[Rfam]
RNA sequence: AUCUGCCUGGCUCCCUGAAUGCCAUCUGAGAAGCUAUUCAAAAUGUUUGAAUUGCUUCCUAGUUGGCAUCUAGGGAGCCAUGCAGGC
Numbered sequence: 001a002u003c004u005g006c007c008u009g010g011c012u013c014c015c016u017g018a019a020u021g022c023c024a025u026c027u028g029a030g031a032a033g034c035u036a037u038u039c040a041a042a043a044u045g046u047u048u049g050a051a052u053u054g055c056u057u058c059c060u061a062g063u064u065g066g067c068a069u070c071u072a073g074g075g076a077g078c079c080a081u082g083c084a085g086g087c
Base pairs, nucleotide, nucleotide: 002086003085004084005083006082008080009079010078011077012076013075014074016072017071019069020068021067022066023065024064027061028060
A member of the RNA family "mir-160 microRNA precursor family" from Camphora micrantha, 87 nucleotides long. On this family, see Rhoades et al., Cell 2002: "Prediction of plant microRNA targets". The organism belongs to Camphora, within Eukaryota. Gene Ontology terms of the family: RISC complex and miRNA-mediated post-transcriptional gene silencing. The family's consensus secondary structure was predicted with PFOLD.